[Rfam]
RNA: Small Cajal body specific RNA 16
Organism: Erinaceus europaeus
RNA sequence: AUGGUCUGUAGAAAGGCUCCUGUGUUGCUGAACUUCUCCAGCAUAGGUGCAGCCUUGUACUAGGCAGCUCAACCCUGACCUAGAGUGUGCCAGGGACUUCAGGUUGCCCUAGGGCUUUGAACUUACAAUAACAGGUGUGAACAUUCUAGCAGCAAUUUGAUGAUAAUGUAUGAUACUGCAAACAAAC
Numbered sequence: 001a002u003g004g005u006c007u008g009u010a011g012a013a014a015g016g017c018u019c020c021u022g023u024g025u026u027g028c029u030g031a032a033c034u035u036c037u038c039c040a041g042c043a044u045a046g047g048u049g050c051a052g053c054c055u056u057g058u059a060c061u062a063g064g065c066a067g068c069u070c071a072a073c074c075c076u077g078a079c080c081u082a083g084a085g086u087g088u089g090c091c092a093g094g095g096a097c098u099u100c101a102g103g104u105u106g107c108c109c110u111a112g113g114g115c116u117u118u119g120a121a122c123u124u125a126c127a128a129u130a131a132c133a134g135g136u137g138u139g140a141a142c143a144u145u146c147u148a149g150c151a152g153c154a155a156u157u158u159g160a161u162g163a164u165a166a167u168g169u170a171u172g173a174u175a176c177u178g179c180a181a182a183c184a185a186a187c
Base pairs, nucleotide, nucleotide: 003080004079005078006077008075015069016068017067018066019064020063021062022061024060025059027053028052029051030050032048033047034046090113091112092110093109094108095107123181124180126178127177129175130174132172133171138166140164142162143161144160145159148157149156
Dot-bracket structure: ..((((.(......((((((((.((.((((.(((...........))).)))).....)))))).)))).....).)))).........((((((...........)))).)).........((.((.((.((....(.(.((((..((......)).)))).).)....)).)).)).))......